The family of this 127-nucleotide sequence from Myotis davidii is "mir-9193 microRNA precursor family". Taxonomically the source falls in Myotis (Eukaryota, Opisthokonta, Bilateria, Vespertilionidae). A search with the family's covariance model found it, with a score of 58 bits.
RNA sequence: UGUGCACCGGUGGGGUCCCUCAGCCUGGCCUGUGCCCUCUCAAAAUCCGGGAUCCCUUGGGGGAUGUUGGAGAGCCGGUUUUGGCUCGAUCCCUGCAGGCCAGGCUGAGGGACCUCACCGGUGCAUG
Numbered sequence: 001u002g003u004g005c006a007c008c009g010g011u012g013g014g015g016u017c018c019c020u021c022a023g024c025c026u027g028g029c030c031u032g033u034g035c036c037c038u039c040u041c042a043a044a045a046u047c048c049g050g051g052a053u054c055c056c057u058u059g060g061g062g063g064a065u066g067u068u069g070g071a072g073a074g075c076c077g078g079u080u081u082u083g084g085c086u087c088g089a090u091c092c093c094u095g096c097a098g099g100c101c102a103g104g105c106u107g108a109g110g111g112a113c114c115u116c117a118c119c120g121g122u123g124c125a126u127g
Stems, first nucleotide, its partner, number of pairs: 003125002006122001008120003012116014027101008